[Rfam]
The record is a 93-nucleotide RNA sequence from Lactuca sativa, which matches "MIR398 microRNA precursor family" in Rfam. The base pairs follow the family's consensus structure, which was predicted with WAR. Rfam 15.1 lists 627 matches to the family in 211 species. The literature on the family includes a 2004 paper in Mol Cell by Jones-Rhoades and Bartel, "Computational identification of plant microRNAs and their targets, including a stress-induced miRNA".

RNA sequence: AAAAACCCUGCAGGGGCGACCUGAGAACACAUGGCGGAAUGUGAUUUGUUGCACAUUUAACAUGUGUUCCCAUGUCGCACCUGUUGGAUGCCU
Number, nucleotide and partner (000 for none) at each position: 001a000002a000003a000004a000005a000006c000007c087008c086009u000010g000011c083012a082013g081014g080015g000016g078017c077018g076019a075020c000021c000022u000023g071024a000025g069026a068027a067028c066029a065030c064031a063032u062033g000034g000035c000036g000037g000038a000039a000040u000041g000042u000043g000044a000045u000046u000047u000048g000049u000050u000051g000052c000053a000054c000055a000056u000057u000058u000059a000060a000061c000062a032063u031064g030065u029066g028067u027068u026069c025070c000071c023072a000073u000074g000075u019076c018077g017078c016079a000080c014081c013082u012083g011084u000085u000086g008087g007088a000089u000090g000091c000092c000093u000